Shown here is an 88-nucleotide RNA from Arthrobacter wenxiniae, a member of the family "ZMP/ZTP riboswitch aptamer (pfl RNA motif)". Lineage of the source: Bacteria > Bacillati > Actinomycetes > Micrococcales > Arthrobacter.
[Rfam]
RNA sequence: UUAAGGGGUUGCGACUGGCGAUGAGGUGGGCCACCACCGGGGAGCAGCACGAGCGAAGGCCCUGGGAUCGUACGCCUGGGACAGGGGC
Numbered sequence: 001u002u003a004a005g006g007g008g009u010u011g012c013g014a015c016u017g018g019c020g021a022u023g024a025g026g027u028g029g030g031c032c033a034c035c036a037c038c039g040g041g042g043a044g045c046a047g048c049a050c051g052a053g054c055g056a057a058g059g060c061c062c063u064g065g066g067a068u069c070g071u072a073c074g075c076c077u078g079g080g081a082c083a084g085g086g087g088c
Stems, first nucleotide, its partner, number of pairs: 006050001008048005015041002017076004026037004066082001068080002

A search with the family's covariance model found it, with a score of 42 bits.